About this RNA:
The record is an 81-nucleotide RNA from Heliconius melpomene, which matches "mir-2765 microRNA precursor family" in Rfam. NCBI's taxonomy places the organism under Eukaryota, Aparaglossata, Lepidoptera, Heliconiinae, Heliconius. The sequence is in the family's curated seed alignment. Its family is annotated with RISC complex and miRNA-mediated post-transcriptional gene silencing in the Gene Ontology. The family has 6 seed sequences and 109 matches in Rfam 15.1.
Nucleotides: 081
Stems, first nucleotide, its partner, number of pairs: 003079010016066002019063005026056002029053009
Number, partner (000 for none) and nucleotide at each position: 001000a002000c003079c004078g005077u006076g007075u008074c009073u010072g011071g012070g013000c014000c015000u016066g017065g018000u019063a020062a021061c022060u023059c024000c025000a026056c027055c028000a029053c030052c031051g032050u033049u034048g035047g036046c037045g038000u039000c040000g041000c042000u043000a044000c045037c046036g047035c048034c049033a050032a051031c052030g053029g054000g055027g056026g057000c058000c059023g060022a061021g062020u063019u064000c065017c066016u067000g068000c069000u070012c071011c072010u073009a074008g075007a076006u077005g078004c079003g080000a081000u